[Rfam]
Nucleotides: 054
Base pairs, nucleotide, nucleotide: 009024010023011022012021013020
Number, partner (000 for none) and nucleotide at each position: 001000u002000u003000g004000a005000a006000a007000a008000a009024g010023g011022c012021u013020c014000u015000u016000a017000c018000g019000a020013g021012a022011g023010u024009c025000a026000g027000g028000g029000g030000c031000c032000a033000a034000c035000u036000g037000u038000u039000g040000c041000c042000u043000g044000a045000a046000g047000a048000a049000g050000g051000g052000u053000a054000a

Notes:
Rfam assigns this 54-nucleotide sequence to the family "algC RNA". Pairs were carried over by alignment from the consensus structure, which is taken from published work. It is one of the family's seed sequences.